[Rfam]
The record is an 86-nucleotide RNA sequence from Seminavis robusta, which matches "Selenocysteine transfer RNA" in Rfam. A search with the family's covariance model found it, with a score of 72 bits.
RNA sequence: GUGUGCAUGAUCUUGCCUGGUGGUGAGGGCAGGCUUCAAACCUGUGGGGGAGUGAUAUCCCAGUGGUUCGAUUCCACCUUGCGCAC
Numbered sequence: 001g002u003g004u005g006c007a008u009g010a011u012c013u014u015g016c017c018u019g020g021u022g023g024u025g026a027g028g029g030c031a032g033g034c035u036u037c038a039a040a041c042c043u044g045u046g047g048g049g050g051a052g053u054g055a056u057a058u059c060c061c062a063g064u065g066g067u068u069c070g071a072u073u074c075c076a077c078c079u080u081g082c083g084c085a086c
Stems, first nucleotide, its partner, number of pairs: 001086007009078001012027006029045005048061004063077004